[Rfam]
Source information:
Plastid-psbA-1 3UTR RNA: a 116-nucleotide sequence from Viviania marifolia. Rfam's curators put it in the seed alignment. On this family, see Richter et al., Plant Commun 2023: "Retrograde signaling in plants: A critical review focusing on the GUN pathway and beyond". Rfam's curators write: Plastid psbA-1 is a non-coding RNA (ncRNA) present in plastids. The family's RNA type in Rfam is cis-regulatory element.
RNA sequence: UGUCGAAGCUCCAUCCACAAAUGGAUAAGACUUUAGUCUUAGUUUAUAUGAGUUUUUGAAAGUAAAGGGGCAAUUUUGGUUUUCUUGUUCUCUCAAGGGUAUUCCUAUUGCUCCUU
Numbered sequence: 001u002g003u004c005g006a007a008g009c010u011c012c013a014u015c016c017a018c019a020a021a022u023g024g025a026u027a028a029g030a031c032u033u034u035a036g037u038c039u040u041a042g043u044u045u046a047u048a049u050g051a052g053u054u055u056u057u058g059a060a061a062g063u064a065a066a067g068g069g070g071c072a073a074u075u076u077u078g079g080u081u082u083u084c085u086u087g088u089u090c091u092c093u094c095a096a097g098g099g100u101a102u103u104c105c106u107a108u109u110g111c112u113c114c115u116u
Base pairs, nucleotide, nucleotide: 010025011024012023013022014021065116066115067114068113069112070111071110072109073108074107078103079102080101082099083098084097085096086095